RNA sequence: GGGAUAUGAUGAGUGGUCAAUGCUCGCAUUUAAAAAUGCGAGAAGGGGUGUCCGCCUAAAGCCUGUUACGACAAUUGGGCAUCUCAACUCAGUACCAUCUGAUCCC
Numbered sequence: 001g002g003g004a005u006a007u008g009a010u011g012a013g014u015g016g017u018c019a020a021u022g023c024u025c026g027c028a029u030u031u032a033a034a035a036a037u038g039c040g041a042g043a044a045g046g047g048g049u050g051u052c053c054g055c056c057u058a059a060a061g062c063c064u065g066u067u068a069c070g071a072c073a074a075u076u077g078g079g080c081a082u083c084u085c086a087a088c089u090c091a092g093u094a095c096c097a098u099c100u101g102a103u104c105c106c
Stems, first nucleotide, its partner, number of pairs: 001106004014097004023042005045085008063077001065075002
RNA: Small nucleolar RNA Z279/snoR105/snoR108